[Rfam]
RNA sequence: GAGUCUAACAUGCCUGCGAGUAUUUGGGUGCUUGAAACCCUUAUGCGUAAUGAAAGUAAAUGUAAAUGGGAUCUGUUAAAAGUGCACCAUUGACCAGUCCAGAUUAUUUAUAUGAUGGUACUGAGUAAGAGCAAGUAUGUUGGGACCCGAAAGAUGGUGAACUAUGCCUGAAUAGGGUGAAGCCAGAGGAAACUCUGGUGGAAGCUCGUAGCGGUUCUGACGUGCAAAUCGAUCGUCAAAUUUGGGUAUAGGGGCGAAAGACUAAUCGAACCAUCUAGUAGCUGGUU
Number, nucleotide and partner (000 for none) at each position: 001g000002a000003g000004u000005c143006u142007a141008a140009c139010a138011u137012g136013c135014c000015u133016g132017c131018g000019a000020g046021u045022a044023u000024u000025u000026g040027g039028g038029u037030g000031c000032u000033u000034g000035a000036a000037a029038c028039c027040c026041u000042u000043a000044u022045g021046c020047g000048u000049a000050a057051u056052g000053a000054a000055a000056g051057u050058a000059a000060a000061u000062g000063u000064a000065a091066a090067u089068g088069g087070g000071a000072u000073c082074u081075g000076u000077u000078a000079a000080a000081a074082g073083u000084g000085c000086a000087c069088c068089a067090u066091u065092g000093a126094c125095c123096a122097g121098u000099c118100c117101a000102g000103a000104u000105u112106a000107u000108u000109u000110a000111u000112a105113u000114g000115a000116u000117g100118g099119u000120a000121c097122u096123g095124a000125g094126u093127a000128a000129g000130a000131g017132c016133a015134a000135g013136u012137a011138u010139g009140u008141u007142g006143g005144g000145a000146c285147c284148c000149g282150a000151a000152a000153g275154a274155u273156g272157g271158u270159g000160a000161a000162c251163u250164a249165u248166g247167c246168c245169u244170g243171a242172a241173u239174a000175g207176g206177g205178u204179g000180a000181a000182g199183c198184c197185a196186g195187a194188g193189g000190a000191a000192a000193c188194u187195c186196u185197g184198g183199u182200g000201g000202a000203a000204g178205c177206u176207c175208g000209u000210a000211g236212c235213g234214g233215u000216u232217c231218u000219g230220a229221c000222g000223u000224g000225c000226a000227a000228a000229u220230c219231g217232a216233u214234c213235g212236u211237c000238a000239a173240a000241u172242u171243u170244g169245g168246g167247u166248a165249u164250a163251g162252g000253g263254g262255c000256g000257a000258a000259a000260g000261a000262c254263u253264a000265a000266u000267c000268g000269a000270a158271c157272c156273a155274u154275c153276u000277a000278g000279u000280a000281g000282c149283u000284g147285g146286u000287u000

This 287-nucleotide part of an RNA from Puccinia sorghi belongs to the Rfam family "Eukaryotic large subunit ribosomal RNA".
The organism belongs to Puccinia, within Eukaryota.
Pairs were carried over by alignment from the consensus structure, which is taken from published work.